[Rfam]
RNA sequence: AGGGGUGCGAUGAUUGUAGCAUAGAUUCCUCGUUCCGAAAGGUACGACAGUGCCAUUUGUGAAUGAUCUAUAUACACCCAAAGAAUAUGAGCACU
Dot-bracket structure: ..((.((....................................................................................))))
Numbered sequence: 001a002g003g004g005g006u007g008c009g010a011u012g013a014u015u016g017u018a019g020c021a022u023a024g025a026u027u028c029c030u031c032g033u034u035c036c037g038a039a040a041g042g043u044a045c046g047a048c049a050g051u052g053c054c055a056u057u058u059g060u061g062a063a064u065g066a067u068c069u070a071u072a073u074a075c076a077c078c079c080a081a082a083g084a085a086u087a088u089g090a091g092c093a094c095u
Stems, first nucleotide, its partner, number of pairs: 003095002006093002